Background:
tRNA: a 72-nucleotide sequence from Mycoplasma haemocanis. A search with the family's covariance model found it, with a score of 71 bits. Rfam describes the family as follows. Transfer RNA (tRNA) molecules are approximately 80 nucleotides in length.
[Rfam]
RNA sequence: GACUUGCUAGCUCAGCGGUAGAGCAUUCGCCUUUUAAGCGAAGGGUCCUGGGUUCGAAUCCCAGGCGAGUCA
Numbered sequence: 001g002a003c004u005u006g007c008u009a010g011c012u013c014a015g016c017g018g019u020a021g022a023g024c025a026u027u028c029g030c031c032u033u034u035u036a037a038g039c040g041a042a043g044g045g046u047c048c049u050g051g052g053u054u055c056g057a058a059u060c061c062c063a064g065g066c067g068a069g070u071c072a
Stems, first nucleotide, its partner, number of pairs: 001071007010024004026042005048064005